The record is a 131-nucleotide sequence from Donacobius atricapilla, which matches "Small nucleolar RNA SNORA44" in Rfam.
For this family Rfam cites "RNomics: an experimental approach that identifies 201 candidates for novel, small, non-messenger RNAs in mouse" (Huttenhofer et al., EMBO J, 2001).
Rfam describes the family as follows. ACA44 is a member of the H/ACA class of snoRNA that guide the sites of modification of uridines to pseudouridines.
A search with the family's covariance model found it, with a score of 71 bits.
RNA sequence: CUGCAUGUUAAACCAAGAGCUGUGGCUCUAUGAAGUAGCUGCAGGUCUCCAACAACAUGCCAGAGCAAUAGGAAGGUCUUUGACUGCUGGGCCUCUUCUGCCCAUGACUGUCACUCAGCCCUCCAAUACAU
Dot-bracket structure: ............(....((((((...........))))))...)..........................(((.((.........((((((.........)))).....)).......)).))).......